Shown here is a 357-nucleotide RNA from Moraxella caviae, a member of the family "transfer-messenger RNA". By type it is a non-coding RNA gene. Bacterial tmRNA, also known as 10Sa RNA or SsrA, is named for its dual tRNA and mRNA-like properties. A search with the family's covariance model found it, with a score of 182 bits. NCBI's taxonomy places the organism under Bacteria, Pseudomonadota, Gammaproteobacteria, Moraxellaceae, Moraxella.
RNA sequence: GGGGAUGUUCUGGCUUCGACGCUGGUAAUGAAACCUAAUGAUGCACGUCAAGAGUGUAUGCCUCUUGUAAAUCAACAUACAUUUAAAAUAGUCGCAAACGACGAAACUUACGCACUAGCUGCCUAAGGGCGCUUGGGUCGGCACAGAUUACCUUUGGUCUGGUUGCUCACCCCGAUGCGAACGCACAAAGGUUAGUUUGACUUAGCGUUGCGAUGAGUCAGGCGAAAUUUUAGCAAAUCGUCCAAGCCUACCUGACUGUCGGUUCGGUGCGGAUUAAAGCCAUAGACAGAUUCUAAGCGUGUAGAGUCAUGGGCGUAGUGCUGGCGGACGCGGGUUCAACUCCCGCCAUCUCCACCA
Numbered sequence: 001g002g003g004g005a006u007g008u009u010c011u012g013g014c015u016u017c018g019a020c021g022c023u024g025g026u027a028a029u030g031a032a033a034c035c036u037a038a039u040g041a042u043g044c045a046c047g048u049c050a051a052g053a054g055u056g057u058a059u060g061c062c063u064c065u066u067g068u069a070a071a072u073c074a075a076c077a078u079a080c081a082u083u084u085a086a087a088a089u090a091g092u093c094g095c096a097a098a099c100g101a102c103g104a105a106a107c108u109u110a111c112g113c114a115c116u117a118g119c120u121g122c123c124u125a126a127g128g129g130c131g132c133u134u135g136g137g138u139c140g141g142c143a144c145a146g147a148u149u150a151c152c153u154u155u156g157g158u159c160u161g162g163u164u165g166c167u168c169a170c171c172c173c174g175a176u177g178c179g180a181a182c183g184c185a186c187a188a189a190g191g192u193u194a195g196u197u198u199g200a201c202u203u204a205g206c207g208u209u210g211c212g213a214u215g216a217g218u219c220a221g222g223c224g225a226a227a228u229u230u231u232a233g234c235a236a237a238u239c240g241u242c243c244a245a246g247c248c249u250a251c252c253u254g255a256c257u258g259u260c261g262g263u264u265c266g267g268u269g270c271g272g273a274u275u276a277a278a279g280c281c282a283u284a285g286a287c288a289g290a291u292u293c294u295a296a297g298c299g300u301g302u303a304g305a306g307u308c309a310u311g312g313g314c315g316u317a318g319u320g321c322u323g324g325c326g327g328a329c330g331c332g333g334g335u336u337c338a339a340c341u342c343c344c345g346c347c348a349u350c351u352c353c354a355c356c357a
Base pairs, nucleotide, nucleotide: 001353002352003351004350005349006348007347020326021325022324023323024322025321026320027319029317034313035312036311038310039309040308041307042306044301045300046299047298048297049067050066051065052064053063054082055081056080057079058078059077060076115135117133118132120131121130122129137176138175139174140173141172145160146159147158148157150192151191152190153189154188155187156186195223196222197221198220199219200218201217202216203215208236209235210234211233240274241273242272243271246268247267248266250263251262252261254293255292257290258287259286260285330346331345332344333343334342